[Rfam]
RNA: mir-15 microRNA precursor family
Organism: Anolis carolinensis
RNA sequence: GUCCGCCCGGCUCUAGCAGCACGUAAAUACUGGAGUCUAGGAUGAUACAUUUGCCCUCCAGUAUUGCUUUGCUGCUUUAAUCGGGUUUGA
Dot-bracket structure: .(..((........(((((((.(..((((((((((....................))))))))))...))))))))........))..).